[Rfam]
RNA: Small nucleolar RNA U54
RNA sequence: AGUUCUGUGAUUAUAUGCCCUAAAUUAGGGCGAUAUACGCUAUUCUGAUUGAUUUACAUGAACAGAAAUCUAUUGAAAAUAUGAGAGCU
Numbered sequence: 001a002g003u004u005c006u007g008u009g010a011u012u013a014u015a016u017g018c019c020c021u022a023a024a025u026u027a028g029g030g031c032g033a034u035a036u037a038c039g040c041u042a043u044u045c046u047g048a049u050u051g052a053u054u055u056a057c058a059u060g061a062a063c064a065g066a067a068a069u070c071u072a073u074u075g076a077a078a079a080u081a082u083g084a085g086a087g088c089u
Stems, first nucleotide, its partner, number of pairs: 001089005